The family of this 136-nucleotide RNA sequence from Bacillus sp. FJAT-49711 is "PyrR binding site". Lineage of the source: Bacteria > Bacillati > Bacilli > Bacillaceae > Bacillus. Pairs were carried over by alignment from the consensus structure, which is taken from published work. It scores 58 bits against the family's covariance model. From the family's description: This family represents the PyrR binding site and terminator structure. This RNA structure is found upstream of a variety of genes involved in pyrimidine biosynthesis and transport. The alignment also includes a portion of the antiterminator structure. Rfam links the family to the GO terms pyrimidine nucleobase transport and pyrimidine nucleobase biosynthetic process. By type it is a cis-regulatory element.
RNA sequence: AUUGCCUUUAAAACAGUCCCGUGAGGCUGACAAGGUUGCAUGCGCAUAUUCUUACUAUGCGUAAAUUCUGCAUAAAGAUGACUCUAUCAUCCGAUUAUUAUGCACCUUGCCUAGCUUAGGACAAGGUGCUUUUUAU
Numbered sequence: 001a002u003u004g005c006c007u008u009u010a011a012a013a014c015a016g017u018c019c020c021g022u023g024a025g026g027c028u029g030a031c032a033a034g035g036u037u038g039c040a041u042g043c044g045c046a047u048a049u050u051c052u053u054a055c056u057a058u059g060c061g062u063a064a065a066u067u068c069u070g071c072a073u074a075a076a077g078a079u080g081a082c083u084c085u086a087u088c089a090u091c092c093g094a095u096u097a098u099u100a101u102g103c104a105c106c107u108u109g110c111c112u113a114g115c116u117u118a119g120g121a122c123a124a125g126g127u128g129c130u131u132u133u134u135a136u
Stems, first nucleotide, its partner, number of pairs: 004036005014029005049081002052078002056074006100131001102129008111120002